A member of the RNA family "c-di-GMP-I riboswitch aptamer" from Acholeplasma palmae, 76 nucleotides long. Rfam 15.1 lists 5,092 matches to the family in 1,772 species. Its family is annotated with cyclic-di-GMP binding in the Gene Ontology.

[Rfam]
RNA sequence: AUGUAACAAAGGCAAAACUACUGAAAGGUAGUGACGCAAAACUAAAGGGCCUUUUAAAUGGUAGCCAGUUGUCAUU
Number, nucleotide and partner (000 for none) at each position: 001a000002u000003g000004u000005a000006a000007c000008a000009a000010a000011g000012g037013c036014a000015a000016a000017a032018c031019u030020a029021c028022u027023g000024a000025a000026a000027g022028g021029u020030a019031g018032u017033g000034a000035c000036g013037c012038a000039a000040a070041a069042c068043u067044a000045a000046a000047g066048g065049g062050c061051c060052u000053u000054u000055u000056a000057a000058a000059u000060g051061g050062u049063a000064g000065c048066c047067a043068g042069u041070u040071g000072u000073c000074a000075u000076u000